[Rfam]
RNA: Rhodo-rpoB RNA
RNA sequence: GGAUCGAGAGGCGGCCGGUGGGACGGCCGCCAGGAAUGGAUCCCCGUGUCAUCCCUUCUCGGGAGAGGCCGCGCCGUGGCCCCGGCGGCGUGAG
Numbered sequence: 001g002g003a004u005c006g007a008g009a010g011g012c013g014g015c016c017g018g019u020g021g022g023a024c025g026g027c028c029g030c031c032a033g034g035a036a037u038g039g040a041u042c043c044c045c046g047u048g049u050c051a052u053c054c055c056u057u058c059u060c061g062g063g064a065g066a067g068g069c070c071g072c073g074c075c076g077u078g079g080c081c082c083c084g085g086c087g088g089c090g091u092g093a094g
Stems, first nucleotide, its partner, number of pairs: 001043005010031008069094001072090005